[Rfam]
RNA sequence: AAAAAGGGUCGGUUGGCUAUGUAUGCCACACACAUCUUUUAAUUGAUGGGCGCUAUAUGGAUAUUAAGACAUAAGACCGACAUAAUUUAUGGAUCUUAUAAGGUUGGCUUGCUCGGCUAACCCUCUU
Numbered sequence: 001a002a003a004a005a006g007g008g009u010c011g012g013u014u015g016g017c018u019a020u021g022u023a024u025g026c027c028a029c030a031c032a033c034a035u036c037u038u039u040u041a042a043u044u045g046a047u048g049g050g051c052g053c054u055a056u057a058u059g060g061a062u063a064u065u066a067a068g069a070c071a072u073a074a075g076a077c078c079g080a081c082a083u084a085a086u087u088u089a090u091g092g093a094u095c096u097u098a099u100a101a102g103g104u105u106g107g108c109u110u111g112c113u114c115g116g117c118u119a120a121c122c123c124u125c126u127u
Stems, first nucleotide, its partner, number of pairs: 008081005014028004029052001031050001033048004054075001056073004098126001100124001102122008
Background
This 127-nucleotide sequence from Dendrobium catenatum belongs to the Rfam family "U11 spliceosomal RNA". The family's consensus secondary structure is taken from published work. It scores 56 bits against the family's covariance model. A reference for the family is Montzka and Steitz (1988), "Additional low-abundance human small nuclear ribonucleoproteins: U11, U12, etc", Proc Natl Acad Sci U S A. NCBI's taxonomy places the organism under Eukaryota, Euphyllophyta, Orchidaceae, Dendrobiinae, Dendrobium.